[Rfam]
RNA sequence: CUGGAAUGAUGAAAGUUAGCCAAAGCAUAUUGUGAUGUGCUCCUCUAAGCAUCAGUUAUAUUGGUGCCUUGGUGAAAUUUUCCUUUUGCCAAGCACGAUAUGAGAUGACUAGAGUUGAAGUUUGCAUCAAUGGUGAUAAAAAUGAGAUUGGUGACUUGCUGACCAGA
Numbered sequence: 001c002u003g004g005a006a007u008g009a010u011g012a013a014a015g016u017u018a019g020c021c022a023a024a025g026c027a028u029a030u031u032g033u034g035a036u037g038u039g040c041u042c043c044u045c046u047a048a049g050c051a052u053c054a055g056u057u058a059u060a061u062u063g064g065u066g067c068c069u070u071g072g073u074g075a076a077a078u079u080u081u082c083c084u085u086u087u088g089c090c091a092a093g094c095a096c097g098a099u100a101u102g103a104g105a106u107g108a109c110u111a112g113a114g115u116u117g118a119a120g121u122u123u124g125c126a127u128c129a130a131u132g133g134u135g136a137u138a139a140a141a142a143u144g145a146g147a148u149u150g151g152u153g154a155c156u157u158g159c160u161g162a163c164c165a166g167a
Base pairs, nucleotide, nucleotide: 001166002165003164004163
Source information
small nucleolar RNA snoR127: a 167-nucleotide sequence from Zizania palustris. Gene Ontology terms of the family: RNA processing and nucleolus. The family has 3 seed sequences and 273 matches in Rfam 15.1. The match comes from Rfam's covariance-model search (49 bits). The literature on the family includes a 2009 paper in Nucleic Acids Res by Chen and Wu, "Mining small RNA sequencing data: a new approach to identify small nucleolar RNAs in Arabidopsis".